[Rfam]
RNA sequence: GUCUGUGAUGAUUCAACCCAACUGUUUGAGGUGUUAUGGAGCCAAGACCCUGUUUACAGGAGAACCUACUUGGUGAAGCUACAUUCAUUUUACUUCAAUGGUUCAACUGAGGC
Numbered sequence: 001g002u003c004u005g006u007g008a009u010g011a012u013u014c015a016a017c018c019c020a021a022c023u024g025u026u027u028g029a030g031g032u033g034u035u036a037u038g039g040a041g042c043c044a045a046g047a048c049c050c051u052g053u054u055u056a057c058a059g060g061a062g063a064a065c066c067u068a069c070u071u072g073g074u075g076a077a078g079c080u081a082c083a084u085u086c087a088u089u090u091u092a093c094u095u096c097a098a099u100g101g102u103u104c105a106a107c108u109g110a111g112g113c
Stems, first nucleotide, its partner, number of pairs: 001113003049060004